A member of the RNA family "SAM riboswitch aptamer (S box leader)" from Halobacillus andaensis, 118 nucleotides long. From the family's description: The SAM riboswitch is found upstream of a number of genes which code for proteins involved in methionine or cysteine biosynthesis in Gram-positive bacteria. A search with the family's covariance model found it, with a score of 88 bits. The organism belongs to Halobacillus, within Bacteria.
RNA sequence: UUCUUAUUUUGAGAGGUGGAGGGACUGGCCCUUUGAAACCUCGGCAACGGGUCUAUGUUGUAGGUAAUAGAUACUGUGCCAAUUCCAGCAGAGGCAUGAAGCGUCUGAAAGAUAAGAA
Numbered sequence: 001u002u003c004u005u006a007u008u009u010u011g012a013g014a015g016g017u018g019g020a021g022g023g024a025c026u027g028g029c030c031c032u033u034u035g036a037a038a039c040c041u042c043g044g045c046a047a048c049g050g051g052u053c054u055a056u057g058u059u060g061u062a063g064g065u066a067a068u069a070g071a072u073a074c075u076g077u078g079c080c081a082a083u084u085c086c087a088g089c090a091g092a093g094g095c096a097u098g099a100a101g102c103g104u105c106u107g108a109a110a111g112a113u114a115a116g117a118a
Stems, first nucleotide, its partner, number of pairs: 001118008013042005021031003025088004043080004048076002051072006084110001089107004094102001